[Rfam]
Rfam assigns this 65-nucleotide sequence from Hucho hucho to the family "Selenocysteine insertion sequence 1".
For this family Rfam cites "A novel RNA structural motif in the selenocysteine insertion element of eukaryotic selenoprotein mRNAs" (Walczak et al., RNA, 1996).
The base pairs follow the family's consensus structure, which is taken from published work.
The match comes from Rfam's covariance-model search (36 bits).

RNA sequence: GUGUUAUUAAUGAAGACCUGACUGUAAACUCUGCAACGAGGGGAGCAGGUUCGAUAUCCAAACAC
Numbered sequence: 001g002u003g004u005u006a007u008u009a010a011u012g013a014a015g016a017c018c019u020g021a022c023u024g025u026a027a028a029c030u031c032u033g034c035a036a037c038g039a040g041g042g043g044a045g046c047a048g049g050u051u052c053g054a055u056a057u058c059c060a061a062a063c064a065c
Stems, first nucleotide, its partner, number of pairs: 001065005015051006023043001029040003